[Rfam]
RNA sequence: CAAGAUCAUUAGGGGUGCCUUAAUAUAACGGGCUGAGAUCAUACCCAUAUCACCUGAAACGGAUAAUGCCGGCGCAGGGAAAUGAAAAAUAGCUAAU
Numbered sequence: 001c002a003a004g005a006u007c008a009u010u011a012g013g014g015g016u017g018c019c020u021u022a023a024u025a026u027a028a029c030g031g032g033c034u035g036a037g038a039u040c041a042u043a044c045c046c047a048u049a050u051c052a053c054c055u056g057a058a059a060c061g062g063a064u065a066a067u068g069c070c071g072g073c074g075c076a077g078g079g080a081a082a083u084g085a086a087a088a089a090u091a092g093c094u095a096a097u
Base pairs, nucleotide, nucleotide: 006085007084008083009082010081012046013045014044016041017033018032019031020030053078054077055076056075060071061070062069
RNA: TPP riboswitch aptamer (THI element)